[Rfam]
RNA sequence: ACGGUUUUUAAAGCGCCAGAACUAACGGAAUUUGCCGUUUUUCUCAAUGAUUUGAGUACGGCUCGGAGUCAGGUGGUCUUAUAUUUAAUAAGCCUAUCUAUUUCGGGAAGUAAGACGGUAAAUUUGUUAGUUGACGAGGUGAAGGUUGAUCGAGUUUUUCGGCGGGUGCCUUCCGGUCAAUCGCAGACCGUGAUUUCUUCCUUAAAACAAGGAGGUGACUCUUUGGACAAAGGGGAGAAAAUGCGAAUUA
Number, nucleotide and partner (000 for none) at each position: 001a000002c000003g000004g000005u000006u000007u000008u000009u000010a000011a000012a000013g000014c000015g000016c000017c000018a000019g000020a132021a131022c130023u129024a128025a127026c126027g125028g000029a123030a000031u000032u000033u000034g000035c000036c000037g000038u000039u000040u000041u000042u000043c000044u000045c000046a000047a000048u000049g000050a000051u000052u000053u000054g000055a000056g000057u000058a000059c000060g000061g000062c000063u000064c000065g000066g000067a000068g000069u000070c000071a000072g000073g000074u000075g000076g000077u000078c000079u000080u000081a000082u000083a000084u000085u000086u000087a000088a000089u000090a000091a000092g000093c000094c000095u000096a000097u000098c000099u000100a000101u000102u000103u000104c000105g000106g000107g000108a000109a000110g000111u000112a000113a000114g000115a000116c000117g000118g000119u000120a000121a000122a000123u029124u000125u027126g026127u025128u024129a023130g022131u021132u020133g000134a000135c000136g000137a000138g000139g000140u000141g173142a172143a171144g170145g169146u000147u000148g000149a000150u162151c161152g160153a159154g000155u000156u000157u000158u000159u153160c152161g151162g150163c000164g000165g000166g000167u000168g000169c145170c144171u143172u142173c141174c190175g189176g188177u187178c186179a000180a000181u000182c000183g000184c000185a000186g178187a177188c176189c175190g174191u000192g000193a000194u240195u239196u238197c237198u236199u235200c234201c000202u000203u000204a000205a000206a000207a000208c225209a224210a223211g222212g221213a220214g219215g000216u000217g000218a000219c214220u213221c212222u211223u210224u209225g208226g000227a000228c000229a000230a000231a000232g000233g000234g200235g199236a198237g197238a196239a195240a194241a000242u000243g000244c000245g000246a000247a000248u000249u000250a000